RNA sequence: UGAUGACUGUUCCUCUUGCUGUCAUAAGCCUUGGACAGUAAGAUUUUGUGUCAUCAGAUAUAAAAAUUGGCCUUUCUUCACUCAAGGUGUCUUGGAUGGGUUUGGCUGUCCUGUAGCACCGUUGAACUUUGCGGGGUCAAACAUUU
Numbered sequence: 001u002g003a004u005g006a007c008u009g010u011u012c013c014u015c016u017u018g019c020u021g022u023c024a025u026a027a028g029c030c031u032u033g034g035a036c037a038g039u040a041a042g043a044u045u046u047u048g049u050g051u052c053a054u055c056a057g058a059u060a061u062a063a064a065a066a067u068u069g070g071c072c073u074u075u076c077u078u079c080a081c082u083c084a085a086g087g088u089g090u091c092u093u094g095g096a097u098g099g100g101u102u103u104g105g106c107u108g109u110c111c112u113g114u115a116g117c118a119c120c121g122u123u124g125a126a127c128u129u130u131g132c133g134g135g136g137u138c139a140a141a142c143a144u145u146u
Base pairs, nucleotide, nucleotide: 001056002055003054004053005052006051007050014043015042016041017040018039020037021036022035023034069138070137071136072135073134074133082125083124084123085122086120087119088118089117090116094112095111098110099109

The record is a 146-nucleotide RNA sequence from Anolis carolinensis, which matches "Small nucleolar RNA SNORA79" in Rfam. Lineage of the source: Eukaryota > Eumetazoa > Tetrapoda > Sauria > Anolis. The family's RNA type in Rfam is H/ACA-box small nucleolar RNA. Rfam's curators write: ACA65 (SNORA79) is a member of the H/ACA class of snoRNAs that guide the sites of modification of uridines to pseudouridines. This snoRNA was identified by computational screening and its expression in mouse experimentally verified by Northern blot and primer extension analysis.